[Rfam]
RNA sequence: UGUGUGUGGUGGUUAGGCAGUGUACUGUUAGUUAGCUGUUCUUCACAAACCAGCAACUGACUACACUGCCACAUUAGCACAUACU
Numbered sequence: 001u002g003u004g005u006g007u008g009g010u011g012g013u014u015a016g017g018c019a020g021u022g023u024a025c026u027g028u029u030a031g032u033u034a035g036c037u038g039u040u041c042u043u044c045a046c047a048a049a050c051c052a053g054c055a056a057c058u059g060a061c062u063a064c065a066c067u068g069c070c071a072c073a074u075u076a077g078c079a080c081a082u083a084c085u
Stems, first nucleotide, its partner, number of pairs: 002084007010076004016070009027061007042048002
RNA: mir-449 microRNA precursor family
Organism: Grallaria varia